A member of the RNA family "let-7 microRNA precursor family" from Lepisosteus oculatus, 81 nucleotides long. Its Rfam clan is "let-7 microRNA precursor clan".
RNA sequence: GUGGGCUGAGGUAGUAGUUUGUAUAGUUUUAGGAUCAUACCCGAUCUCGGAGAUAACUAUACAGCCUACUGUCUUUCCCAC
Number, nucleotide and partner (000 for none) at each position: 001g081002u080003g079004g078005g077006c000007u000008g075009a074010g073011g072012u071013a070014g069015u068016a067017g066018u000019u064020u063021g062022u061023a060024u059025a058026g057027u056028u000029u000030u000031a000032g042033g041034a000035u039036c000037a000038u000039a035040c000041c033042c032043g000044a000045u052046c000047u000048c000049g000050g000051a000052g045053a000054u000055a000056a027057c026058u025059a024060u023061a022062c021063a020064g019065c000066c017067u016068a015069c014070u013071g012072u011073c010074u009075u008076u000077c005078c004079c003080a002081c001
On this family, see Rougvie, Nat Rev Genet 2001: "Control of developmental timing in animals". This family represents the microRNAs (miRNA) let-7 and mir-98. let-7 was identified from a study of developmental timing in C. elegans, and was later shown to be part of a much larger class of non-coding RNAs termed miRNAs. The base pairs follow the family's consensus structure, which was predicted with RNAalifold.